A member of the RNA family "ZMP/ZTP riboswitch aptamer (pfl RNA motif)" from Pectinatus brassicae, 79 nucleotides long. On this family, see Jones and Ferre-D'Amare, Nat Struct Mol Biol 2015: "Recognition of the bacterial alarmone ZMP through long-distance association of two RNA subdomains". Pairs were carried over by alignment from the consensus structure, which is taken from published work. Rfam links the family to the GO terms one-carbon metabolic process and regulation of purine nucleotide biosynthetic process.

RNA sequence: CAGUAAAUACAGAACUGGCGGAGUUGUGGGUUACCACGGGGGACUGUAUUUCUUAAAGCCGGCCGCCUGGGCAGAAUAC
Numbered sequence: 001c002a003g004u005a006a007a008u009a010c011a012g013a014a015c016u017g018g019c020g021g022a023g024u025u026g027u028g029g030g031u032u033a034c035c036a037c038g039g040g041g042g043a044c045u046g047u048a049u050u051u052c053u054u055a056a057a058g059c060c061g062g063c064c065g066c067c068u069g070g071g072c073a074g075a076a077u078a079c
Stems, first nucleotide, its partner, number of pairs: 003053001005051008015041002017067005026037004058072003
The source organism's lineage runs through Bacteria, Bacillota, Negativicutes, Selenomonadaceae and Pectinatus.